[Rfam]
RNA sequence: UGUUCACAUGCGUGAUGAUACAUGAUGUUGGUAGGGACAUCUGAGAAAACUUGAUGAGUACCAACAUCUCUGACAUGCAGAACU
Number, nucleotide and partner (000 for none) at each position: 001u000002g083003u082004u081005c080006a000007c000008a000009u000010g000011c000012g000013u000014g000015a000016u000017g000018a000019u000020a000021c000022a000023u000024g000025a000026u000027g000028u000029u000030g000031g000032u000033a000034g000035g000036g000037a000038c000039a000040u000041c000042u000043g000044a000045g000046a000047a000048a000049a000050c000051u000052u000053g000054a000055u000056g000057a000058g000059u000060a000061c000062c000063a000064a000065c000066a000067u000068c000069u000070c000071u000072g000073a000074c000075a000076u000077g000078c000079a000080g005081a004082a003083c002084u000
Rfam assigns this 84-nucleotide RNA from Sinocyclocheilus grahami to the family "Small nucleolar RNA SNORD74". Rfam classes the family as a C/D-box small nucleolar RNA. The family is grouped with related families in Rfam's "SNORD74 clan". On this family, see Galardi et al., Mol Cell Biol 2002: "Purified box C/D snoRNPs are able to reproduce site-specific 2'-O-methylation of target RNA in vitro".